RNA: Bacterial large signal recognition particle RNA
RNA sequence: CCGUGCUAAACGGGGAGGUAGCGGUGCCCUGUACCCGCAAUCCGCUAUAGCGGGGUUGAAUUCCCGACUCGAGGUUUUGUUUUGUCAGCGAGAGGGUGAGUAAGUGAUGGUGAUCUUCGGGUCCUAUGCGACGAGAGCUUCUGAACCGGGUCAGAUCCUGACGGAAGCAGCCAUAAGGAAUGUCUUUCGGGCGCCGUGGGGUAGCCUGGAGGGAGUUAACUGCUUACUUUCUCCUGGGAAGAUAAUUAUCGAAAGUUGGGUGCAUGG
Numbered sequence: 001c002c003g004u005g006c007u008a009a010a011c012g013g014g015g016a017g018g019u020a021g022c023g024g025u026g027c028c029c030u031g032u033a034c035c036c037g038c039a040a041u042c043c044g045c046u047a048u049a050g051c052g053g054g055g056u057u058g059a060a061u062u063c064c065c066g067a068c069u070c071g072a073g074g075u076u077u078u079g080u081u082u083u084g085u086c087a088g089c090g091a092g093a094g095g096g097u098g099a100g101u102a103a104g105u106g107a108u109g110g111u112g113a114u115c116u117u118c119g120g121g122u123c124c125u126a127u128g129c130g131a132c133g134a135g136a137g138c139u140u141c142u143g144a145a146c147c148g149g150g151u152c153a154g155a156u157c158c159u160g161a162c163g164g165a166a167g168c169a170g171c172c173a174u175a176a177g178g179a180a181u182g183u184c185u186u187u188c189g190g191g192c193g194c195c196g197u198g199g200g201g202u203a204g205c206c207u208g209g210a211g212g213g214a215g216u217u218a219a220c221u222g223c224u225u226a227c228u229u230u231c232u233c234c235u236g237g238g239a240a241g242a243u244a245a246u247u248a249u250c251g252a253a254a255g256u257u258g259g260g261u262g263c264a265u266g267g
Base pairs, nucleotide, nucleotide: 001267002266003265004264005263006262009057010056011055012030013029014028015027017025019023034054035053036052037051038050063260064259065258066257067256068255069254073250074249075248079243080242081241082240083239085237086236087235088234092230093229096227097226098225099224100223101222104220105219106217107216108215114212115211116210117209118208119207120206121205122204123200124199125198126197127196128195129191132189133188134187135186136185139180140179141178142177149172150171151170156165157164158163